Nucleotides: 073
Base pairs, nucleotide, nucleotide: 011073012072013071014070015069016068017067018066019065021063022062023061024060025059026058029055030054
Number, partner (000 for none) and nucleotide at each position: 001000c002000g003000c004000u005000c006000a007000c008000a009000u010000c011073u012072c013071c014070u015069u016068a017067u018066c019065a020000c021063u022062u023061u024060u025059c026058c027000a028000g029055c030054c031000c032000a033000g034000c035000u036000a037000u038000a039000g040000c041000u042000u043000c044000u045000g046000a047000a048000u049000c050000c051000g052000u053000u054030g055029g056000a057000c058026g059025g060024a061023g062022a063021a064000c065019u066018g067017a068016u069015a070014a071013g072012g073011g